[Rfam]
RNA sequence: GGAUGAGAGAUACACCCCGCCCGCAGGGGACUGCGGGCGAACCGGGUGGGAGCCUCCCGGCUUCGACCUGGGCGUGCCCUCGCGCACACCACCGGAGCCCAAGGUUUCGGAUUCCACACCGAUCGGA
Numbered sequence: 001g002g003a004u005g006a007g008a009g010a011u012a013c014a015c016c017c018c019g020c021c022c023g024c025a026g027g028g029g030a031c032u033g034c035g036g037g038c039g040a041a042c043c044g045g046g047u048g049g050g051a052g053c054c055u056c057c058c059g060g061c062u063u064c065g066a067c068c069u070g071g072g073c074g075u076g077c078c079c080u081c082g083c084g085c086a087c088a089c090c091a092c093c094g095g096a097g098c099c100c101a102a103g104g105u106u107u108c109g110g111a112u113u114c115c116a117c118a119c120c121g122a123u124c125g126g127a
Stems, first nucleotide, its partner, number of pairs: 004118002007115001009114002018039009042071005049064005074087004092110008119126002
Streptomyces RNA 5676: a 127-nucleotide RNA from Streptomyces sp. Amel2xC10. About the family: Identified by deep sequencing of transcriptome at the end of exponential growth phase. Appears longer on northern blot than sequencing transcript. This indicates processing step. Streptomyces specific. Lineage of the source: Bacteria > Bacillati > Kitasatosporales > Streptomycetaceae > Streptomyces. The pairing is the family consensus, mapped onto this sequence. By type it is a small RNA.